This 74-nucleotide sequence from Shewanella sp. SNU WT4 belongs to the Rfam family "tRNA". Taxonomically the source falls in Shewanella (Bacteria, Pseudomonadota, Gammaproteobacteria, Alteromonadales). A search with the family's covariance model found it, with a score of 65 bits.
RNA sequence: GCGCCCAUAGCUCAGAUGGAUAGAGCGCACCCCUCCGGAGGGUGAGGCCGAGGGUUCGAAUCCUUCUGGGCGCA
Numbered sequence: 001g002c003g004c005c006c007a008u009a010g011c012u013c014a015g016a017u018g019g020a021u022a023g024a025g026c027g028c029a030c031c032c033c034u035c036c037g038g039a040g041g042g043u044g045a046g047g048c049c050g051a052g053g054g055u056u057c058g059a060a061u062c063c064u065u066c067u068g069g070g071c072g073c074a
Stems, first nucleotide, its partner, number of pairs: 001073007010026004028044005050066005